[Rfam]
Shown here is a 99-nucleotide RNA sequence from Salix koriyanagi, a member of the family "MIR394 microRNA precursor family". The literature on the family includes a 2004 paper in Mol Cell by Jones-Rhoades and Bartel, "Computational identification of plant microRNAs and their targets, including a stress-induced miRNA". The source organism's lineage runs through Eukaryota, Embryophyta, Spermatophyta, Magnoliopsida and Salix. The match comes from Rfam's covariance-model search (91 bits).
RNA sequence: CUUACAGAGUUUAUUGGCAUUCUGUCCACCUCCCGCCCGUACAAACUACAAGCUGUUUACUUUCUGGAGGUGGGCAUACUGCCAACCGAGCUCUGUUGG
Numbered sequence: 001c002u003u004a005c006a007g008a009g010u011u012u013a014u015u016g017g018c019a020u021u022c023u024g025u026c027c028a029c030c031u032c033c034c035g036c037c038c039g040u041a042c043a044a045a046c047u048a049c050a051a052g053c054u055g056u057u058u059a060c061u062u063u064c065u066g067g068a069g070g071u072g073g074g075c076a077u078a079c080u081g082c083c084a085a086c087c088g089a090g091c092u093c094u095g096u097u098g099g
Stems, first nucleotide, its partner, number of pairs: 011089001014085006023076011